[Rfam]
RNA sequence: CUGAGGUUGCCGACGAAUUCGUUGGCAGGGACGGGGGACCCAGAAGUGGGCGCGCAGCUCUGCGCCCUUGGGGUGAAGCCGCAUGACCCGAGAGGUCAUCGGCCGGGCGUUCUCCUACCCGAACCCGACAGCUAACCUCGCAGACGUCAUGGAGAGAAUAU
Numbered sequence: 001c002u003g004a005g006g007u008u009g010c011c012g013a014c015g016a017a018u019u020c021g022u023u024g025g026c027a028g029g030g031a032c033g034g035g036g037g038a039c040c041c042a043g044a045a046g047u048g049g050g051c052g053c054g055c056a057g058c059u060c061u062g063c064g065c066c067c068u069u070g071g072g073g074u075g076a077a078g079c080c081g082c083a084u085g086a087c088c089c090g091a092g093a094g095g096u097c098a099u100c101g102g103c104c105g106g107g108c109g110u111u112c113u114c115c116u117a118c119c120c121g122a123a124c125c126c127g128a129c130a131g132c133u134a135a136c137c138u139c140g141c142a143g144a145c146g147u148c149a150u151g152g153a154g155a156g157a158a159u160a161u
Stems, first nucleotide, its partner, number of pairs: 011146002014143001018030003032140005041070002071126003079102003105120003
Annotation:
This 161-nucleotide sequence from Sanguibacter antarcticus belongs to the Rfam family "c-di-AMP riboswitch aptamer (ydaO/yuaA leader)". NCBI's taxonomy places the organism under Bacteria, Actinomycetota, Micrococcales, Sanguibacteraceae, Sanguibacter.